[Rfam]
RNA sequence: UUUAGAACUGAGAAGAAGAAUAGUAAAAUAAAAAAAUAUUAUAGAGAAUCUAUGUGUGGUGAAAAUAGAUAUAUUAAUUUAUUUGAAGAAACUUUGGAGUUAAAUACUGUACGCAAGGUAUUUCGCUUUAAAAAAAGCGUUAAAAAAAAGAGAAAAAAAUAAGGUGGUACCACGGCUUUUCGUCCUUUAG
Number, nucleotide and partner (000 for none) at each position: 001u000002u000003u000004a000005g000006a000007a100008c099009u000010g000011a000012g000013a000014a000015g095016a094017a093018g092019a000020a000021u000022a000023g000024u000025a000026a084027a083028a082029u081030a080031a079032a000033a000034a000035a000036a000037u073038a072039u071040u000041a000042u000043a000044g000045a000046g000047a000048a070049u069050c068051u067052a066053u065054g000055u000056g000057u000058g000059g000060u000061g000062a000063a000064a000065a053066u052067a051068g050069a049070u048071a039072u038073a037074u000075u000076a000077a000078u000079u031080u030081a029082u028083u027084u026085g000086a000087a000088g000089a000090a000091a000092c018093u017094u016095u015096g000097g000098a000099g008100u007101u000102a000103a122104a121105u120106a119107c118108u117109g000110u000111a000112c000113g000114c000115a000116a000117g108118g107119u106120a105121u104122u103123u000124c139125g138126c137127u136128u135129u000130a000131a000132a000133a000134a000135a128136a127137g126138c125139g124140u000141u000142a000143a000144a000145a000146a000147a000148a000149a000150g000151a000152g000153a000154a000155a000156a000157a000158a000159a000160u000161a187162a186163g185164g184165u000166g000167g000168u000169a000170c000171c000172a183173c182174g181175g180176c000177u000178u000179u000180u175181c174182g173183u172184c164185c163186u162187u161188u000189a000190g000
T-box leader: a 190-nucleotide RNA from Firmicutes bacterium CAG:884. Rfam classes the family as a cis-regulatory leader. The match comes from Rfam's covariance-model search (95 bits). Rfam links the family to the GO term tRNA binding. NCBI's taxonomy places the organism under Bacteria, Bacillati, Bacillota. Rfam 15.1 lists 19,395 matches to the family in 1,923 species.